[Rfam]
This 91-nucleotide RNA sequence from Aotus nancymaae belongs to the Rfam family "Small nucleolar RNA SNORD116". Rfam classes the family as a C/D-box small nucleolar RNA. The family's consensus secondary structure was predicted with PFOLD. Rfam 15.1 lists 3,260 matches to the family in 170 species. It scores 47 bits against the family's covariance model. The organism belongs to Aotus, within Eukaryota.
RNA sequence: AGAUCAUCAAUGACUUCCAUAUAUGCAGUCCUUGGAAAGCUGAACAACAUGAGUGAAAACUCUAUUAAAAAAAGAAAAAGCAGAAACAUUU
Numbered sequence: 001a002g003a004u005c006a007u008c009a010a011u012g013a014c015u016u017c018c019a020u021a022u023a024u025g026c027a028g029u030c031c032u033u034g035g036a037a038a039g040c041u042g043a044a045c046a047a048c049a050u051g052a053g054u055g056a057a058a059a060c061u062c063u064a065u066u067a068a069a070a071a072a073a074g075a076a077a078a079a080g081c082a083g084a085a086a087c088a089u090u091u
Stems, first nucleotide, its partner, number of pairs: 001091004026055002029052002032047003